A member of the RNA family "Small nucleolar RNA SNORD53/SNORD92" from Junco hyemalis, 77 nucleotides long.
It scores 82 bits against the family's covariance model.
The family has 37 seed sequences and 2,250 matches in Rfam 15.1.
On this family, see Huttenhofer et al., EMBO J 2001: "RNomics: an experimental approach that identifies 201 candidates for novel, small, non-messenger RNAs in mouse".
Rfam classes the family as a C/D-box small nucleolar RNA.
The base pairs follow the family's consensus structure.
RNA sequence: AUGCAGUGAUGAUACCCAUCUUGGUUUCGCUUCUGGCUGAAUUCCAGUGAAGACACAUCUCUUGGCUGUCUGAGCAU
Dot-bracket structure: ((((.....................................................................))))
Numbered sequence: 001a002u003g004c005a006g007u008g009a010u011g012a013u014a015c016c017c018a019u020c021u022u023g024g025u026u027u028c029g030c031u032u033c034u035g036g037c038u039g040a041a042u043u044c045c046a047g048u049g050a051a052g053a054c055a056c057a058u059c060u061c062u063u064g065g066c067u068g069u070c071u072g073a074g075c076a077u
Stems, first nucleotide, its partner, number of pairs: 001077004